Annotation
mir-9242 microRNA precursor family: a 64-nucleotide sequence from Myotis myotis. Rfam links the family to the GO terms miRNA-mediated post-transcriptional gene silencing and RISC complex. The match comes from Rfam's covariance-model search (68 bits). The source organism's lineage runs through Eukaryota, Opisthokonta, Chiroptera, Vespertilionidae and Myotis.
[Rfam]
RNA sequence: GGCCUCCCUCUGCAGGGUAAUUGAUCACGGAGCUCCCCGAUUGAUCGCCCUGCAGAGGGUGGCC
Numbered sequence: 001g002g003c004c005u006c007c008c009u010c011u012g013c014a015g016g017g018u019a020a021u022u023g024a025u026c027a028c029g030g031a032g033c034u035c036c037c038c039g040a041u042u043g044a045u046c047g048c049c050c051u052g053c054a055g056a057g058g059g060u061g062g063c064c
Stems, first nucleotide, its partner, number of pairs: 001064004006059013020045007029036002